This 47-nucleotide sequence from Schaalia canis belongs to the Rfam family "L31-Actinobacteria ribosomal protein leader".
The organism belongs to Schaalia, within Bacteria.
Rfam classes the family as a cis-regulatory leader.
The family is grouped with related families in Rfam's "Ribosomal Protein L31 Leader clan".
RNA sequence: UCGGUUCUGGUUCACCUUUGAGACCAAUCCCCAAAGGACCCAGCGCC
Numbered sequence: 001u002c003g004g005u006u007c008u009g010g011u012u013c014a015c016c017u018u019u020g021a022g023a024c025c026a027a028u029c030c031c032c033a034a035a036g037g038a039c040c041c042a043g044c045g046c047c
Stems, first nucleotide, its partner, number of pairs: 003047003007043004015037006022030001
On this family, see Eckert and Weinberg, BMC Microbiol 2020: "Discovery of 20 novel ribosomal leader candidates in bacteria and archaea".